[Rfam]
RNA sequence: GCGAGAAUGUCUACACACCACGGUGGUAGGCAGAGUGUAUUUGUAAAUUCAGUAACCCACCAGCACGUGUAAACGCACGCAAAAGCCCUUUAUGGCAAUGUGUCUCGGCUGGUUAUGGUACACCAAUCUGACGUAUGGUUAUCAGUAAUGUUCCCGUACGUCAUUUAGAGAGUGGUUACUCUUACC
Numbered sequence: 001g002c003g004a005g006a007a008u009g010u011c012u013a014c015a016c017a018c019c020a021c022g023g024u025g026g027u028a029g030g031c032a033g034a035g036u037g038u039a040u041u042u043g044u045a046a047a048u049u050c051a052g053u054a055a056c057c058c059a060c061c062a063g064c065a066c067g068u069g070u071a072a073a074c075g076c077a078c079g080c081a082a083a084a085g086c087c088c089u090u091u092a093u094g095g096c097a098a099u100g101u102g103u104c105u106c107g108g109c110u111g112g113u114u115a116u117g118g119u120a121c122a123c124c125a126a127u128c129u130g131a132c133g134u135a136u137g138g139u140u141a142u143c144a145g146u147a148a149u150g151u152u153c154c155c156g157u158a159c160g161u162c163a164u165u166u167a168g169a170g171a172g173u174g175g176u177u178a179c180u181c182u183u184a185c186c
Stems, first nucleotide, its partner, number of pairs: 001038002008032007016025002051180007059113006066107002078102004085096003129163010143150002
This 186-nucleotide sequence belongs to the Rfam family "RT-7 RNA". The sequence is in the family's curated seed alignment. Rfam classes the family as a small RNA. Pairs were carried over by alignment from the consensus structure, which is taken from published work.